The record is an 82-nucleotide sequence from Nelumbo nucifera, which matches "Small nucleolar RNA SNORD25" in Rfam. The match comes from Rfam's covariance-model search (61 bits). By type it is a C/D-box small nucleolar RNA. Lineage of the source: Eukaryota > Streptophyta > Tracheophyta > Magnoliopsida > Nelumbo. Pairs were carried over by alignment from the consensus structure, which was predicted with PFOLD. Clan: SNORD25 clan.

RNA sequence: AGCAACAAUGACGAGUAUACAGACCUGUAAUGAUUUGCGAAUAUGAUCGCAACUCUAAGAACAUCUAAGGGACUGAGUUGUU
Numbered sequence: 001a002g003c004a005a006c007a008a009u010g011a012c013g014a015g016u017a018u019a020c021a022g023a024c025c026u027g028u029a030a031u032g033a034u035u036u037g038c039g040a041a042u043a044u045g046a047u048c049g050c051a052a053c054u055c056u057a058a059g060a061a062c063a064u065c066u067a068a069g070g071g072a073c074u075g076a077g078u079u080g081u082u
Stems, first nucleotide, its partner, number of pairs: 002081005